[Rfam]
RNA sequence: GAAAGGCCGUAUUCGUCUUAUACGGCUGGAUGCGACAGAAAGCAUCCCAUUCAAG
Numbered sequence: 001g002a003a004a005g006g007c008c009g010u011a012u013u014c015g016u017c018u019u020a021u022a023c024g025g026c027u028g029g030a031u032g033c034g035a036c037a038g039a040a041a042g043c044a045u046c047c048c049a050u051u052c053a054a055g
Base pairs, nucleotide, nucleotide: 005027006026007025008024009023010022011021012020028047029046030045031044032043033042
S4-Clostridia ribosomal protein leader: a 55-nucleotide RNA sequence.
A reference for the family is Eckert and Weinberg (2020), "Discovery of 20 novel ribosomal leader candidates in bacteria and archaea", BMC Microbiol.
Rfam classes the family as a cis-regulatory leader.